[Rfam]
A member of the RNA family "PhotoRC-II RNA", 97 nucleotides long.
The sequence is in the family's curated seed alignment.
RNA sequence: UCACAAUACCUACUCCCCUUAAACCAAGACCUAUAGGGAGGAUAAAUUACGUCUUUCAUAUCCGAAAGUGAGGGAUUUUCGGAAAUAAGUUUCGCUC
Number, nucleotide and partner (000 for none) at each position: 001u000002c000003a000004c000005a000006a000007u000008a000009c000010c000011u000012a000013c040014u039015c038016c037017c036018c000019u000020u035021a034022a000023a000024c000025c000026a055027a054028g053029a052030c051031c000032u000033a000034u021035a020036g017037g016038g015039a014040g013041g000042a000043u000044a000045a000046a000047u000048u000049a000050c000051g030052u029053c028054u027055u026056u000057c000058a000059u000060a000061u083062c082063c081064g080065a079066a078067a077068g000069u000070g000071a000072g000073g000074g000075a000076u000077u067078u066079u065080c064081g063082g062083a061084a000085a000086u000087a000088a000089g000090u000091u000092u000093c000094g000095c000096u000097c000